RNA sequence: CUUGAAGCCAUCCAACAGGGGAUUGCACAAGGAGGCAGCCAUGUUCGUCGAUACAGUGGUACUCGCCGGUAUCGGUACAGUUUUGUUGAUGGUCGCCUUCUUCGGUGGCGUCGGUUACUUCAUCUGGAAGGAUGCGCACAAGAAGACCAAGUCGAAUUAAUCCUUCCCGGUACAGAGCACGCAAGGCAAUUUAGGGCGACUUCGGUCGCCCAUUUUUUUG
Numbered sequence: 001c002u003u004g005a006a007g008c009c010a011u012c013c014a015a016c017a018g019g020g021g022a023u024u025g026c027a028c029a030a031g032g033a034g035g036c037a038g039c040c041a042u043g044u045u046c047g048u049c050g051a052u053a054c055a056g057u058g059g060u061a062c063u064c065g066c067c068g069g070u071a072u073c074g075g076u077a078c079a080g081u082u083u084u085g086u087u088g089a090u091g092g093u094c095g096c097c098u099u100c101u102u103c104g105g106u107g108g109c110g111u112c113g114g115u116u117a118c119u120u121c122a123u124c125u126g127g128a129a130g131g132a133u134g135c136g137c138a139c140a141a142g143a144a145g146a147c148c149a150a151g152u153c154g155a156a157u158u159a160a161u162c163c164u165u166c167c168c169g170g171u172a173c174a175g176a177g178c179a180c181g182c183a184a185g186g187c188a189a190u191u192u193a194g195g196g197c198g199a200c201u202u203c204g205g206u207c208g209c210c211c212a213u214u215u216u217u218u219u220g
Stems, first nucleotide, its partner, number of pairs: 012105002056066003086091001177187002180185001194211007